The family of this 80-nucleotide sequence from Alligator mississippiensis is "Mammalian CPEB3 ribozyme". From the family's description: The mammalian CPEB3 ribozyme is a self cleaving RNA located in the second intron of the CPEB3 gene which belongs to a family of genes regulating messenger RNA polyadenylation. This ribozyme is highly conserved and found only in mammals. The CPEB3 ribozyme is structurally and biochemically related to the human hepatitis delta virus (HDV) ribozyme and the HDV ribozyme is proposed to have arisen from the human transcriptome. There is currently only one other known self cleaving ribozyme in mammals, the CoTC motif. The family's consensus secondary structure is taken from published work.
RNA sequence: AGAGGUCACAAAUUUGAGGCCAUAGAAGAAGUGCUCAUGACACAGCCCUGUCAGACUCCAAUAGAUCUUCAAGUUCUGCU
Dot-bracket structure: ...............[.[[[...((.(((((((.......))).]]]]....(((.(......).))).....)))).))
It scores 39 bits against the family's covariance model.